[Rfam]
RNA: mir-8834 microRNA precursor family
RNA sequence: GGGAGGAAGCCACAGUGGCGGGGGCAGCUCUGGGACCCUGGAUUCUGGUCCCGCAGUACCUCCGGGGCUCUCCGUCUGCAGGGCCUCGGGGCUCCCGGGCGGG
Numbered sequence: 001g002g003g004a005g006g007a008a009g010c011c012a013c014a015g016u017g018g019c020g021g022g023g024g025c026a027g028c029u030c031u032g033g034g035a036c037c038c039u040g041g042a043u044u045c046u047g048g049u050c051c052c053g054c055a056g057u058a059c060c061u062c063c064g065g066g067g068c069u070c071u072c073c074g075u076c077u078g079c080a081g082g083g084c085c086u087c088g089g090g091g092c093u094c095c096c097g098g099g100c101g102g103g
Stems, first nucleotide, its partner, number of pairs: 001094003008086002010083002017076007026069009038056003